This 52-nucleotide RNA from Chinchilla lanigera belongs to the Rfam family "mir-1302 microRNA precursor family". The source organism's lineage runs through Eukaryota, Opisthokonta, Mammalia, Boreoeutheria and Chinchilla. For this family Rfam cites "Application of massively parallel sequencing to microRNA profiling and discovery in human embryonic stem cells" (Morin et al., Genome Res, 2008). The match comes from Rfam's covariance-model search (64 bits).

RNA sequence: AUUUCAGUAUAAGUACGUCUCGCGCAAUAUCUGGGACAUACUUAUACUAAAA
Numbered sequence: 001a002u003u004u005c006a007g008u009a010u011a012a013g014u015a016c017g018u019c020u021c022g023c024g025c026a027a028u029a030u031c032u033g034g035g036a037c038a039u040a041c042u043u044a045u046a047c048u049a050a051a052a
Stems, first nucleotide, its partner, number of pairs: 006048007014040002018036004022031001